The family of this 94-nucleotide RNA sequence from Nyctereutes procyonoides is "mir-544 microRNA precursor family".

RNA sequence: AUCACCUGUGAAUCUUGUUAAAAUGGAGAUUCUAAUUCAGCAUCUAGGGUAGCCUGAGACUCUGCAUUUCUAACAAGUUCCCAGGUAGUACCAA
Numbered sequence: 001a002u003c004a005c006c007u008g009u010g011a012a013u014c015u016u017g018u019u020a021a022a023a024u025g026g027a028g029a030u031u032c033u034a035a036u037u038c039a040g041c042a043u044c045u046a047g048g049g050u051a052g053c054c055u056g057a058g059a060c061u062c063u064g065c066a067u068u069u070c071u072a073a074c075a076a077g078u079u080c081c082c083a084g085g086u087a088g089u090a091c092c093a094a
Base pairs, nucleotide, nucleotide: 004086005085010080011079014077015076016075017074018073019072020071021069022068023067025065027063028062029061031059032058033057
Source information: Rfam links the family to the GO terms miRNA-mediated post-transcriptional gene silencing and RISC complex.